[Rfam]
RNA sequence: UGCAGCCCUGUCAAAUUCAGUCCCUGCCUCCUCCGUGGCGGGGGCUGGCCAGCCGGCUGCCACAGCAACUUCUGUGGGCCGUAAGCCCCGUGUCCCCUCCCAUGGGAUCCCGGGGAUAAAAUCACACCACAGACAUUG
Numbered sequence: 001u002g003c004a005g006c007c008c009u010g011u012c013a014a015a016u017u018c019a020g021u022c023c024c025u026g027c028c029u030c031c032u033c034c035g036u037g038g039c040g041g042g043g044g045c046u047g048g049c050c051a052g053c054c055g056g057c058u059g060c061c062a063c064a065g066c067a068a069c070u071u072c073u074g075u076g077g078g079c080c081g082u083a084a085g086c087c088c089c090g091u092g093u094c095c096c097c098u099c100c101c102a103u104g105g106g107a108u109c110c111c112g113g114g115g116a117u118a119a120a121a122u123c124a125c126a127c128c129a130c131a132g133a134c135a136u137u138g
Stems, first nucleotide, its partner, number of pairs: 002060004018047011074130004078125001086115005
Description:
The record is a 138-nucleotide RNA sequence from Rhinoptilus africanus, which matches "Small nucleolar RNA SNORA5" in Rfam. From the family's description: ACA5 is a member of the H/ACA class of snoRNA that guide the sites of modification of uridines to pseudouridines. The family is grouped with related families in Rfam's "SNORA5 clan". It is annotated as an H/ACA-box small nucleolar RNA. The source organism's lineage runs through Eukaryota, Tetrapoda, Saurischia, Neognathae and Rhinoptilus.